[Rfam]
RNA sequence: CAGGUUCUCCUGGCGCGUCCGACGCCGCAGGUGUUUCCUCCCUCGCCUGUUGGUGAUGCGCCCCACUAGCCUCGCUCUGAGCAGAGCGAGGUUUUUU
Numbered sequence: 001c002a003g004g005u006u007c008u009c010c011u012g013g014c015g016c017g018u019c020c021g022a023c024g025c026c027g028c029a030g031g032u033g034u035u036u037c038c039u040c041c042c043u044c045g046c047c048u049g050u051u052g053g054u055g056a057u058g059c060g061c062c063c064c065a066c067u068a069g070c071c072u073c074g075c076u077c078u079g080a081g082c083a084g085a086g087c088g089a090g091g092u093u094u095u096u097u
Stems, first nucleotide, its partner, number of pairs: 012062008027050007069092009